Shown here is a 132-nucleotide RNA from Podarcis muralis, a member of the family "Small nucleolar RNA SNORA22". Gene Ontology terms of the family: RNA processing and nucleolus. The family's RNA type in Rfam is H/ACA-box small nucleolar RNA. Lineage of the source: Eukaryota > Bilateria > Deuterostomia > Episquamata > Podarcis. From the family's description: ACA22 is a member of the H/ACA class of snoRNA that guide the sites of modification of uridines to pseudouridines.

RNA sequence: UUGCACGGUGAACACCCAAGUGAGCUCUGUAGUUCCCUUGGCAUAACUCUGUGCUAGAGUAACCUGUGCUUUACCCUCUGCAUUGCAAGGAACAUACUUCCUUUCAAAUGUAUUCAAAAGGACAGGACAGUU
Numbered sequence: 001u002u003g004c005a006c007g008g009u010g011a012a013c014a015c016c017c018a019a020g021u022g023a024g025c026u027c028u029g030u031a032g033u034u035c036c037c038u039u040g041g042c043a044u045a046a047c048u049c050u051g052u053g054c055u056a057g058a059g060u061a062a063c064c065u066g067u068g069c070u071u072u073a074c075c076c077u078c079u080g081c082a083u084u085g086c087a088a089g090g091a092a093c094a095u096a097c098u099u100c101c102u103u104u105c106a107a108a109u110g111u112a113u114u115c116a117a118a119a120g121g122a123c124a125g126g127a128c129a130g131u132u
Stems, first nucleotide, its partner, number of pairs: 003054006010048001014044001016041005022035001024033003056072006077118001079116002081110004085105001087103005